[Rfam]
Source information
Actinomyces-1 RNA: a 111-nucleotide RNA sequence. Rfam classes the family as a small RNA. The sequence is in the family's curated seed alignment.
RNA sequence: UCUACCGCUGGACGGAUCCGGUCGCGAGGGUUGGGGAGCCCAAUGACCGAUCGGCUUUCGAGGUCGCCCGGGUUGAUAGGGAGCCCGACGUGAACCGCUCCAGCGAAGGAG
Numbered sequence: 001u002c003u004a005c006c007g008c009u010g011g012a013c014g015g016a017u018c019c020g021g022u023c024g025c026g027a028g029g030g031u032u033g034g035g036g037a038g039c040c041c042a043a044u045g046a047c048c049g050a051u052c053g054g055c056u057u058u059c060g061a062g063g064u065c066g067c068c069c070g071g072g073u074u075g076a077u078a079g080g081g082a083g084c085c086c087g088a089c090g091u092g093a094a095c096c097g098c099u100c101c102a103g104c105g106a107a108g109g110a111g
Stems, first nucleotide, its partner, number of pairs: 006105007013060004018054007028041005062096003065092003069087005